[Rfam]
Rfam assigns this 133-nucleotide sequence from Myotis myotis to the family "U11 spliceosomal RNA". On this family, see Schneider et al., Proc Natl Acad Sci U S A 2004: "Identification of an evolutionarily divergent U11 small nuclear ribonucleoprotein particle in Drosophila". NCBI's taxonomy places the organism under Eukaryota, Opisthokonta, Theria, Vespertilionidae, Myotis. The family's RNA type in Rfam is spliceosomal small nuclear RNA. The family's consensus secondary structure is taken from published work. Gene Ontology terms of the family: pre-mRNA 5'-splice site binding, mRNA 5'-splice site recognition and U11 snRNP.
RNA sequence: CAACGGUGCUCCUGUUAGAGUGGCACACAUAGGGCAGCUUGAUUGCUCUACAUGUGAAAUUGACAUCAAGAGAUUUUGGAAGCAUAAUAUUUUGGUAUCUGGGCAGCUGGUGAUUAUUGGUCCUGGAAACCUG
Numbered sequence: 001c002a003a004c005g006g007u008g009c010u011c012c013u014g015u016u017a018g019a020g021u022g023g024c025a026c027a028c029a030u031a032g033g034g035c036a037g038c039u040u041g042a043u044u045g046c047u048c049u050a051c052a053u054g055u056g057a058a059a060u061u062g063a064c065a066u067c068a069a070g071a072g073a074u075u076u077u078g079g080a081a082g083c084a085u086a087a088u089a090u091u092u093u094g095g096u097a098u099c100u101g102g103g104c105a106g107c108u109g110g111u112g113a114u115u116a117u118u119g120g121u122c123c124u125g126g127a128a129a130c131c132u133g
Base pairs, nucleotide, nucleotide: 008083009082010081012079013025014024015023016022017021026054027053030050031049032048033047034046035045036044037043055078056077057076058075059074060073061072101131102130107126108125109124110123112122113121114120115119